A member of the RNA family "TPP riboswitch aptamer (THI element)" from Tindallia californiensis, 106 nucleotides long. Vitamin B(1) in its active form thiamin pyrophosphate (TPP) is an essential coenzyme that is synthesised by coupling of pyrimidine and thiazole moieties in bacteria. The match comes from Rfam's covariance-model search (59 bits). The family's consensus secondary structure is taken from published work.
[Rfam]
RNA sequence: GAAAAAUAUAAGGGGAGCUGGCGUGUCUGGCUGAGAGGGAGUUGUUUGUUCCGACCCAAAACCUGAUCUGGAUAAUGCCAGCGGAGGGAUAGUAGAAAAAUGUGAU
Numbered sequence: 001g002a003a004a005a006a007u008a009u010a011a012g013g014g015g016a017g018c019u020g021g022c023g024u025g026u027c028u029g030g031c032u033g034a035g036a037g038g039g040a041g042u043u044g045u046u047u048g049u050u051c052c053g054a055c056c057c058a059a060a061a062c063c064u065g066a067u068c069u070g071g072a073u074a075a076u077g078c079c080a081g082c083g084g085a086g087g088g089a090u091a092g093u094a095g096a097a098a099a100a101u102g103u104g105a106u
Base pairs, nucleotide, nucleotide: 009091010090012057013056014055017031018030019029020028021027038052039051040050041049042048062087063086064085068081069080070079071078